[Rfam]
RNA sequence: UAAUCUAUAGGAGUUCUUGAAAGUAAAGGAGCAAUAAAAAAUUUCUUGUUAUAUCAAGAGGUUUGUUAUUGCUCCUUU
Numbered sequence: 001u002a003a004u005c006u007a008u009a010g011g012a013g014u015u016c017u018u019g020a021a022a023g024u025a026a027a028g029g030a031g032c033a034a035u036a037a038a039a040a041a042u043u044u045c046u047u048g049u050u051a052u053a054u055c056a057a058g059a060g061g062u063u064u065g066u067u068a069u070u071g072c073u074c075c076u077u078u
Stems, first nucleotide, its partner, number of pairs: 025078013039064003043060005
RNA: Plastid-psbA-1 3UTR RNA